The record is a 76-nucleotide RNA sequence from Prolemur simus, which matches "mir-320 microRNA precursor family" in Rfam.
A search with the family's covariance model found it, with a score of 64 bits.
NCBI's taxonomy places the organism under Eukaryota, Opisthokonta, Tetrapoda, Strepsirrhini, Prolemur.
The literature on the family includes a 2006 paper in Genome Res by Berezikov et al., "Many novel mammalian microRNA candidates identified by extensive cloning and RAKE analysis".
[Rfam]
RNA sequence: GACAGUGGGGGCCUUCUCUUCCUUGUUGUUCCUGGAGUUGGGAAAAGCUGGGUUGAGGAGGAAAAAAUUAAAAAUA
Dot-bracket structure: .............(((((..(((.(...((((((....))))))...).)))..))))).................